[Rfam]
RNA sequence: GCCUACCUUUAAAUGUCGUACGAACGCCGAAAUAAAUAGCGUAUUUUACUAAUAUUAAAUAAAAGAUAUUGGUCGACACGUGCGUUUCUGUCCUAUCAAGCGAUAGGAGAAAGACAGAGUGAGGUAGACGCGCACUAGUAAUAGUAGCGCAGGAG
Numbered sequence: 001g002c003c004u005a006c007c008u009u010u011a012a013a014u015g016u017c018g019u020a021c022g023a024a025c026g027c028c029g030a031a032a033u034a035a036a037u038a039g040c041g042u043a044u045u046u047u048a049c050u051a052a053u054a055u056u057a058a059a060u061a062a063a064a065g066a067u068a069u070u071g072g073u074c075g076a077c078a079c080g081u082g083c084g085u086u087u088c089u090g091u092c093c094u095a096u097c098a099a100g101c102g103a104u105a106g107g108a109g110a111a112a113g114a115c116a117g118a119g120u121g122a123g124g125u126a127g128a129c130g131c132g133c134a135c136u137a138g139u140a141a142u143a144g145u146a147g148c149g150c151a152g153g154a155g
Base pairs, nucleotide, nucleotide: 003127004126005125006124007123008122009121014116015115016114017113022087023086024085025084026083027082091108092107093106094105095104096103130150131149132148134145135144136143137142